[Rfam]
RNA sequence: CCAAAGGCUCUUUUCAGAGCCAUCACCUUUUCAUAUGAGAGUUUAGU
Numbered sequence: 001c002c003a004a005a006g007g008c009u010c011u012u013u014u015c016a017g018a019g020c021c022a023u024c025a026c027c028u029u030u031u032c033a034u035a036u037g038a039g040a041g042u043u044u045a046g047u
Base pairs, nucleotide, nucleotide: 006021007020008019009018010017011016
Shown here is a 47-nucleotide sequence from Peromyscus maniculatus, a member of the family "Histone 3' UTR stem-loop". The base pairs follow the family's consensus structure, which is taken from published work. Rfam describes the family as follows. The mRNAs of metazoan histone genes lack a poly-A tail. 3' end processing occurs at a site between a highly conserved stem-loop (modelled by this family) and a purine rich region around 20 nts downstream (the histone downstream element, or HDE). The stem-loop is bound by a 31 kDa stem-loop binding protein (SLBP - also termed the histone hairpin binding protein, or HBP). Together with U7 snRNA binding of the HDE, SLBP binding nucleate s the formation of the processing complex. The histone 3' UTR stem-loop is also involved in nucleocytoplasmic transport of the mRNA, and in stability regulation and translation efficiency in the cytoplasm. The source organism's lineage runs through Eukaryota, Opisthokonta, Bilateria, Euteleostomi and Peromyscus maniculatus. It is annotated as a cis-regulatory element. The family has 50 seed sequences and 44,596 matches in Rfam 15.1. Gene Ontology term of the family: mRNA 3'-end processing by stem-loop binding and cleavage.